[Rfam]
RNA sequence: GUUGCUUCUUAAGGUGAACUCUCUUUAUAUUAAUUAAAGUGAGAGACGUUCAAGUUUCCGAAGCAUAAAUCAACUGUCAGUAUUAAACAGCAUGCUGCAUUUUCAAUUGCAUCUUGCUACCUGUCUCCUGCUACAUUC
Numbered sequence: 001g002u003u004g005c006u007u008c009u010u011a012a013g014g015u016g017a018a019c020u021c022u023c024u025u026u027a028u029a030u031u032a033a034u035u036a037a038a039g040u041g042a043g044a045g046a047c048g049u050u051c052a053a054g055u056u057u058c059c060g061a062a063g064c065a066u067a068a069a070u071c072a073a074c075u076g077u078c079a080g081u082a083u084u085a086a087a088c089a090g091c092a093u094g095c096u097g098c099a100u101u102u103u104c105a106a107u108u109g110c111a112u113c114u115u116g117c118u119a120c121c122u123g124u125c126u127c128c129u130g131c132u133a134c135a136u137u138c
Base pairs, nucleotide, nucleotide: 003065004064005063006062007061008060015052016051017050018049019048020046021045022044023043024042076132078130079129080128082126089118090117091116094113096111097110
Shown here is a 138-nucleotide RNA from Capsicum baccatum, a member of the family "small nucleolar RNA snoR137". The family has 4 seed sequences and 808 matches in Rfam 15.1. The match comes from Rfam's covariance-model search (108 bits). On this family, see Chen and Wu, Nucleic Acids Res 2009: "Mining small RNA sequencing data: a new approach to identify small nucleolar RNAs in Arabidopsis". Rfam classes the family as an H/ACA-box small nucleolar RNA.